[Rfam]
RNA sequence: UGGAAGCAUCCGUAAAGCUCAGGAGGGAUAGCGCCAUUAAUUGAAUUUCAAAGAGUUCAAUUUACAUAAAUAGUUCAAUUUAGUGGCGCUAUCCAUCCUGAGUUUCAUGGGUUCUUCUU
Numbered sequence: 001u002g003g004a005a006g007c008a009u010c011c012g013u014a015a016a017g018c019u020c021a022g023g024a025g026g027g028a029u030a031g032c033g034c035c036a037u038u039a040a041u042u043g044a045a046u047u048u049c050a051a052a053g054a055g056u057u058c059a060a061u062u063u064a065c066a067u068a069a070a071u072a073g074u075u076c077a078a079u080u081u082a083g084u085g086g087c088g089c090u091a092u093c094c095a096u097c098c099u100g101a102g103u104u105u106c107a108u109g110g111g112u113u114c115u116u117c118u119u
Stems, first nucleotide, its partner, number of pairs: 010110001016104009026094010